[Rfam]
Nucleotides: 059
Stems, first nucleotide, its partner, number of pairs: 027040005042057006
Number, partner (000 for none) and nucleotide at each position: 001000g002000u003000a004000a005000a006000a007000a008000u009000a010000a011000g012000a013000a014000u015000u016000u017000a018000u019000c020000g021000a022000a023000c024000a025000g026000a027040c028039c029038u030037g031036u032000u033000u034000u035000g036031a037030c038029a039028g040027g041000a042057g043056c044055u045054g046053c047052c048000g049000u050000g051000u052047g053046g054045c055044g056043g057042c058000a059000a

Shown here is a 59-nucleotide sequence, a member of the family "RAGATH-30 RNA". Rfam classes the family as a small RNA.